Rfam assigns this 63-nucleotide sequence from Xenopus tropicalis to the family "mir-367 microRNA precursor family".
NCBI's taxonomy places the organism under Eukaryota, Deuterostomia, Anura, Xenopus, Silurana.
On this family, see Mineno et al., Nucleic Acids Res 2006: "The expression profile of microRNAs in mouse embryos".
Gene Ontology terms of the family: miRNA-mediated post-transcriptional gene silencing and RISC complex.
[Rfam]
RNA sequence: UUACUGUUGCCUAUGUGCAAACUCUGUGCUAUAUUGUCUAGAAUUGCACUGUAGCAAUGGUGA
Number, nucleotide and partner (000 for none) at each position: 001u000002u062003a061004c060005u059006g058007u057008u056009g055010c054011c000012u000013a000014u000015g000016u048017g047018c046019a045020a044021a000022c000023u042024c041025u040026g039027u000028g000029c000030u000031a000032u000033a000034u000035u000036g000037u000038c000039u026040a025041g024042a023043a000044u020045u019046g018047c017048a016049c000050u000051g000052u000053a000054g010055c009056a008057a007058u006059g005060g004061u003062g002063a000